[Rfam]
RNA sequence: UGGGGGCCCCCAUUGGAUGUGGCCCAUUUGGAGGCUGAACAAAUCA
Numbered sequence: 001u002g003g004g005g006g007c008c009c010c011c012a013u014u015g016g017a018u019g020u021g022g023c024c025c026a027u028u029u030g031g032a033g034g035c036u037g038a039a040c041a042a043a044u045c046a
Stems, first nucleotide, its partner, number of pairs: 001012004014042001016040001021036004
Description: The record is a 46-nucleotide RNA, which matches "eL15-Euryarchaeota ribosomal protein leader" in Rfam. It is one of the family's seed sequences. The family's RNA type in Rfam is cis-regulatory leader. The literature on the family includes a 2020 paper in BMC Microbiol by Eckert and Weinberg, "Discovery of 20 novel ribosomal leader candidates in bacteria and archaea". The base pairs follow the family's consensus structure, which is taken from published work.